[Rfam]
RNA sequence: AAGUACUCCCGAAUCCACCAAAUGAGGAUAGGGAUAACGGCUGGUUGGCACAGCCAGCGGUGCGCUUGUUCGAUUGUAGCGAGGGUCGGUUCGCCCCGCGAGAACAAGUCGUUAACCGCGAACCGUAAUAUCCCAACUCGGGGGGAAUCCUCGCCGUUUACGGCGGAGA
Numbered sequence: 001a002a003g004u005a006c007u008c009c010c011g012a013a014u015c016c017a018c019c020a021a022a023u024g025a026g027g028a029u030a031g032g033g034a035u036a037a038c039g040g041c042u043g044g045u046u047g048g049c050a051c052a053g054c055c056a057g058c059g060g061u062g063c064g065c066u067u068g069u070u071c072g073a074u075u076g077u078a079g080c081g082a083g084g085g086u087c088g089g090u091u092c093g094c095c096c097c098g099c100g101a102g103a104a105c106a107a108g109u110c111g112u113u114a115a116c117c118g119c120g121a122a123c124c125g126u127a128a129u130a131u132c133c134c135a136a137c138u139c140g141g142g143g144g145g146a147a148u149c150c151u152c153g154c155c156g157u158u159u160a161c162g163g164c165g166g167a168g169a
Base pairs, nucleotide, nucleotide: 003038004037007034008033009032010031013029014028015027039055040054041053042052043051058118059117060116061115062112063111065108066107067106068105069104070103071102083096084095085094086093131146132145133144134143137141148169149168151166152165153164154163155162156161
Dot-bracket structure: ..((..((((..(((...........))).))))..))(((((.......)))))..((((((.(((((((...........((((......)))).....)))))))..))..))))............((((..(...).)))).((.((((((....)))))).))